[Rfam]
RNA sequence: UGUUACUCUCUAGCUUAAGAACCUCUAAUGUGGUGAUGUCCAUCUCAUGUCAUCCAGGGAUAAGGCAACCCUUGUUUAUCCCAGCUUGGCUCUUGGUCUGUGCCCAUGGCUGGUUCGUGCCUUGGAUACAUGG
Numbered sequence: 001u002g003u004u005a006c007u008c009u010c011u012a013g014c015u016u017a018a019g020a021a022c023c024u025c026u027a028a029u030g031u032g033g034u035g036a037u038g039u040c041c042a043u044c045u046c047a048u049g050u051c052a053u054c055c056a057g058g059g060a061u062a063a064g065g066c067a068a069c070c071c072u073u074g075u076u077u078a079u080c081c082c083a084g085c086u087u088g089g090c091u092c093u094u095g096g097u098c099u100g101u102g103c104c105c106a107u108g109g110c111u112g113g114u115u116c117g118u119g120c121c122u123u124g125g126a127u128a129c130a131u132g133g
Base pairs, nucleotide, nucleotide: 001062002061003060004059006057007056011052013050018045019044021039022038024036025035073128074127075126076125077124078123088121089120090119094117095116096115098113099112100111103108
The family of this 133-nucleotide RNA sequence from Pongo abelii is "Small nucleolar RNA SNORA48".
The family's consensus secondary structure was predicted with RNAalifold.
The source organism's lineage runs through Eukaryota, Opisthokonta, Chordata, Tetrapoda and Pongo.
Rfam classes the family as an H/ACA-box small nucleolar RNA.
Its Rfam clan is "SNORA48 clan".
Gene Ontology terms of the family: nucleolus and RNA processing.
The snoRNA ACA 48 has been identified to guide pseudouridylation of the residue U3797 in the 28S rRNA subunit.